[Rfam]
RNA sequence: GCCGAGCUGGGCAGCGCCAGUUUGUGACCCAAGUGGGGGCAAUAAAUGGUUUGGAUGCUGUCGAUGGGUUCUGAGGCGUAGAUCUAUCGUAUAGUUAUUGGCCUGCCCGUUCCAAGUUAAUAGUGAAUCGGUCAAAUCGGGCGAAGGCCUGAUUCUCCUGGUUCAUAGUGUGGAGGGCACCGGUCUAGGCUGGUUUCACAGAGCAAUCACACCCACCCACUUUCAACGGUGGAAGGAUAACAGGCCGGUUUACGAUGGAUCUACAACAUCCCUCAAAGCCUGCUUCUAUCAAACAAACCGUUUU
Numbered sequence: 001g002c003c004g005a006g007c008u009g010g011g012c013a014g015c016g017c018c019a020g021u022u023u024g025u026g027a028c029c030c031a032a033g034u035g036g037g038g039g040c041a042a043u044a045a046a047u048g049g050u051u052u053g054g055a056u057g058c059u060g061u062c063g064a065u066g067g068g069u070u071c072u073g074a075g076g077c078g079u080a081g082a083u084c085u086a087u088c089g090u091a092u093a094g095u096u097a098u099u100g101g102c103c104u105g106c107c108c109g110u111u112c113c114a115a116g117u118u119a120a121u122a123g124u125g126a127a128u129c130g131g132u133c134a135a136a137u138c139g140g141g142c143g144a145a146g147g148c149c150u151g152a153u154u155c156u157c158c159u160g161g162u163u164c165a166u167a168g169u170g171u172g173g174a175g176g177g178c179a180c181c182g183g184u185c186u187a188g189g190c191u192g193g194u195u196u197c198a199c200a201g202a203g204c205a206a207u208c209a210c211a212c213c214c215a216c217c218c219a220c221u222u223u224c225a226a227c228g229g230u231g232g233a234a235g236g237a238u239a240a241c242a243g244g245c246c247g248g249u250u251u252a253c254g255a256u257g258g259a260u261c262u263a264c265a266a267c268a269u270c271c272c273u274c275a276a277a278g279c280c281u282g283c284u285u286c287u288a289u290c291a292a293a294c295a296a297a298c299c300g301u302u303u304u
Stems, first nucleotide, its partner, number of pairs: 001040003004023007028037003044303010056291002059288002063284001065282004070277001072275005078269002080262008089253003093250002098248008107236002110234005116227003120223001122221003125164007135154008172217002175214003183208001190201003
The family of this 304-nucleotide RNA sequence from Zingiber officinale is "Plant signal recognition particle RNA".
The organism belongs to Zingiber, within Eukaryota.
Its Rfam clan is "SRP clan".